[Rfam]
Nucleotides: 054
Stems, first nucleotide, its partner, number of pairs: 003028003006023001008021004036053006
Number, partner (000 for none) and nucleotide at each position: 001000g002000g003028u004027u005026g006023g007000a008021c009020a010019a011018g012000u013000u014000u015000g016000u017000a018011c019010u020009u021008g022000a023006u024000u025000c026005c027004a028003a029000g030000a031000a032000a033000u034000u035000u036053g037052u038051u039050u040049c041048c042000a043000g044000g045000g046000u047000g048041g049040g050039a051038a052037a053036c054000u
Shown here is a 54-nucleotide RNA sequence from Clostridium beijerinckii, a member of the family "Na+ riboswitch aptamer (DUF1646)". Rfam links the family to the GO terms regulation of gene expression and sodium ion binding. The literature on the family includes a 2022 paper in Nat Chem Biol by White et al., "Na(+) riboswitches regulate genes for diverse physiological processes in bacteria". It is one of the family's seed sequences.